Annotation: The family of this 60-nucleotide sequence from Corynebacterium sp. KPL1856 is "L31-Corynebacteriaceae ribosomal protein leader". The organism belongs to Corynebacterium, within Bacteria. By type it is a cis-regulatory leader.
RNA sequence: ACUCGGGCACGAUCCGCUCCAUAAGUGGGUGGAACCGACCUGUAGUCCAACCCUGAGGGA
Numbered sequence: 001a002c003u004c005g006g007g008c009a010c011g012a013u014c015c016g017c018u019c020c021a022u023a024a025g026u027g028g029g030u031g032g033a034a035c036c037g038a039c040c041u042g043u044a045g046u047c048c049a050a051c052c053c054u055g056a057g058g059g060a
Stems, first nucleotide, its partner, number of pairs: 001046003004042004013033007